[Rfam]
RNA sequence: ACUUGCAGGCGCGUCUCCUCCCAUUGCGCGCGGCAAGUGUUCCCCUCUGGAGGUUUUGCCCGAUGGGCACCUUCACAACUUGAAGCCGGGCUUUCUUGAAGUCCGGCUCUUUU
Numbered sequence: 001a002c003u004u005g006c007a008g009g010c011g012c013g014u015c016u017c018c019u020c021c022c023a024u025u026g027c028g029c030g031c032g033g034c035a036a037g038u039g040u041u042c043c044c045c046u047c048u049g050g051a052g053g054u055u056u057u058g059c060c061c062g063a064u065g066g067g068c069a070c071c072u073u074c075a076c077a078a079c080u081u082g083a084a085g086c087c088g089g090g091c092u093u094u095c096u097u098g099a100a101g102u103c104c105g106g107c108u109c110u111u112u113u
Stems, first nucleotide, its partner, number of pairs: 001038005008031001009029004048075007084108006091101003
A member of the RNA family "Alphaproteobacterial ar15" from Paramesorhizobium deserti, 113 nucleotides long. It scores 58 bits against the family's covariance model. Rfam classes the family as a small RNA. Lineage of the source: Bacteria > Pseudomonadota > Alphaproteobacteria > Phyllobacteriaceae > Paramesorhizobium. Clan: suhB sRNA clan. Rfam links the family to the GO term protein binding.